[Rfam]
RNA sequence: GCUUUGUGAUGCUUAGAGUCGGCUCUAAAGUGCUGAGCUGUGGGUUUUUAUAAACAGGCGCAUAUUGAUUCUGCGAUUUUAUGCAUGGAAGCUGCCAAUACAGCAGCCUUCCAUAGCCCGGUGGCAGGUACAUCG
Numbered sequence: 001g002c003u004u005u006g007u008g009a010u011g012c013u014u015a016g017a018g019u020c021g022g023c024u025c026u027a028a029a030g031u032g033c034u035g036a037g038c039u040g041u042g043g044g045u046u047u048u049u050a051u052a053a054a055c056a057g058g059c060g061c062a063u064a065u066u067g068a069u070u071c072u073g074c075g076a077u078u079u080u081a082u083g084c085a086u087g088g089a090a091g092c093u094g095c096c097a098a099u100a101c102a103g104c105a106g107c108c109u110u111c112c113a114u115a116g117c118c119c120g121g122u123g124g125c126a127g128g129u130a131c132a133u134c135g
Base pairs, nucleotide, nucleotide: 001059002058003057004056007050008049011045012044013043014042015041017039019036020035021034022033023032071127073125074124076122077121078120083117084116085114086113087112088111090109091108093106
Dot-bracket structure: ((((..((..(((((.(.(((((........)))))..).)))))...)).....))))...........(.((.(((....((((((.((.(............).)).)))).))..))).)).)........

Shown here is a 135-nucleotide RNA from Cottoperca gobio, a member of the family "Small nucleolar RNA SNORA84". A search with the family's covariance model found it, with a score of 74 bits. The family's RNA type in Rfam is H/ACA-box small nucleolar RNA. A reference for the family is Marker et al. (2002), "Experimental RNomics: identification of 140 candidates for small non-messenger RNAs in the plant Arabidopsis thaliana", Curr Biol.